The record is a 169-nucleotide RNA sequence from Streptomyces zinciresistens, which matches "c-di-AMP riboswitch aptamer (ydaO/yuaA leader)" in Rfam. Rfam links the family to the GO terms regulation of gene expression and cyclic-di-AMP binding. This family represents a conserved RNA structure found upstream of the ydaO and yuaA genes in Bacillus subtilis and related genes in other bacteria.

[Rfam]
RNA sequence: CCGGAUCCCGCGCCAACUCACCCGUGCACGGCAGGAGCGGGGGACCCACAGGCACCACCGCCUGUUCCGGUCUCCGGAACAGGCUUGGGGUUAAGUCGCGCCUCGGCGCGGCCGGGCAUCUCCAGCUCGCACCCGACAGCUCACCUCGCAGGCACCGGAGAGGAAAAAG
Numbered sequence: 001c002c003g004g005a006u007c008c009c010g011c012g013c014c015a016a017c018u019c020a021c022c023c024g025u026g027c028a029c030g031g032c033a034g035g036a037g038c039g040g041g042g043g044a045c046c047c048a049c050a051g052g053c054a055c056c057a058c059c060g061c062c063u064g065u066u067c068c069g070g071u072c073u074c075c076g077g078a079a080c081a082g083g084c085u086u087g088g089g090g091u092u093a094a095g096u097c098g099c100g101c102c103u104c105g106g107c108g109c110g111g112c113c114g115g116g117c118a119u120c121u122c123c124a125g126c127u128c129g130c131a132c133c134c135g136a137c138a139g140c141u142c143a144c145c146u147c148g149c150a151g152g153c154a155c156c157g158g159a160g161a162g163g164a165a166a167a168a169g
Base pairs, nucleotide, nucleotide: 001152002151006036007035008034037149038148039147040146041145042144047087048086088134089133090132096111097110098109099108114128115127116126117125